[Rfam]
RNA sequence: AACGUGCUCCGGGGUCGGUGUAAAUCCGAACCGGCGGUCAAAGUCCGCGACCCGCGCGUCGAUCCACACCCGUGGCCAUCGACCAGCGGUUGAACCGGUGGAAUUCCGGUACCGACAGUUAAAGUCUGGAUGGGAGAAGCACGUG
Dot-bracket structure: .((((((((......(((.......))).[[((((((.....[[))))...((((..............................))))....(((((.......)))))]])).(((.....]]))).......).))))))).
The record is a 145-nucleotide sequence from Citricoccus muralis, which matches "FMN riboswitch aptamer (RFN element)" in Rfam.
It scores 98 bits against the family's covariance model.
Rfam links the family to the GO term FMN binding.